R2 RNA element: a 150-nucleotide RNA sequence from Mycetomoellerius zeteki. Lineage of the source: Eukaryota > Bilateria > Panarthropoda > Allotriocarida > Mycetomoellerius. About the family: This family represents the 3' UTR region of the R2 retrotransposable element. This family is known to interact with the R2-encoded reverse transcriptase in a reaction known as target primed reverse transcription (TPRT). Its family is annotated with regulation of reverse transcription in the Gene Ontology. A reference for the family is Ruschak et al. (2004), "Secondary structure models of the 3' untranslated regions of diverse R2 RNAs", RNA. The family has 15 seed sequences and 3,698 matches in Rfam 15.1.

RNA sequence: UUGUAGGCGGCGGUGAUCCGCGGAGUGGUUUUAGUUGGUAGGCGCCUGGCGGAGUUGUGGGUUAGCCCUCCUCCAACAGGUGAAUCCGAAACUACCCCCUGGUGAUGAGUCGCUCCCCCGGGUGUCUUUUGAAGAUUUCCACUUCGACAA
Numbered sequence: 001u002u003g004u005a006g007g008c009g010g011c012g013g014u015g016a017u018c019c020g021c022g023g024a025g026u027g028g029u030u031u032u033a034g035u036u037g038g039u040a041g042g043c044g045c046c047u048g049g050c051g052g053a054g055u056u057g058u059g060g061g062u063u064a065g066c067c068c069u070c071c072u073c074c075a076a077c078a079g080g081u082g083a084a085u086c087c088g089a090a091a092c093u094a095c096c097c098c099c100u101g102g103u104g105a106u107g108a109g110u111c112g113c114u115c116c117c118c119c120g121g122g123u124g125u126c127u128u129u130u131g132a133a134g135a136u137u138u139c140c141a142c143u144u145c146g147a148c149a150a
Stems, first nucleotide, its partner, number of pairs: 001150004021146008035089004043082006049070001051068002092124001095122003